Shown here is a 95-nucleotide RNA, a member of the family "PhotoRC-II RNA". Rfam classes the family as a cis-regulatory element.
Nucleotides: 095
Base pairs, nucleotide, nucleotide: 012039013038014037015036016035018034025054026053027052028051029050061081062080063079064078065077066076067075
Number, partner (000 for none) and nucleotide at each position: 001000u002000a003000a004000c005000a006000g007000u008000u009000g010000a011000a012039c013038a014037c015036c016035c017000c018034u019000u020000c021000a022000a023000c024000c025054g026053a027052g028051a029050c030000c031000u032000a033000u034018a035016g036015g037014g038013u039012g040000u041000c042000u043000a044000a045000a046000u047000u048000a049000c050029g051028u052027c053026u054025c055000u056000c057000a058000u059000a060000c061081c062080u063079u064078u065077c066076u067075c068000u069000g070000a071000g072000g073000g074000u075067g076066a077065g078064a079063a080062a081061g082000g083000a084000a085000u086000a087000u088000u089000u090000u091000a092000c093000c094000g095000a